Description: The record is a 98-nucleotide sequence from Erysipelotrichaceae bacterium 5_2_54FAA, which matches "Purine riboswitch aptamer" in Rfam. A search with the family's covariance model found it, with a score of 58 bits.
[Rfam]
RNA sequence: AAAAUAAAUGUGGUAAAACCUUGUAUAGUAUCAUAAUUUGGUUGAUAGUUUCUACCCGCUGACCUAAUCGGUGGACUACAAGGAAUCUUUUGACAUGG
Numbered sequence: 001a002a003a004a005u006a007a008a009u010g011u012g013g014u015a016a017a018a019c020c021u022u023g024u025a026u027a028g029u030a031u032c033a034u035a036a037u038u039u040g041g042u043u044g045a046u047a048g049u050u051u052c053u054a055c056c057c058g059c060u061g062a063c064c065u066a067a068u069c070g071g072u073g074g075a076c077u078a079c080a081a082g083g084a085a086u087c088u089u090u091u092g093a094c095a096u097g098g
Stems, first nucleotide, its partner, number of pairs: 019083007029047005056074007
Lineage of the source: Bacteria > Bacillati > Erysipelotrichia > Erysipelotrichales > Erysipelotrichaceae.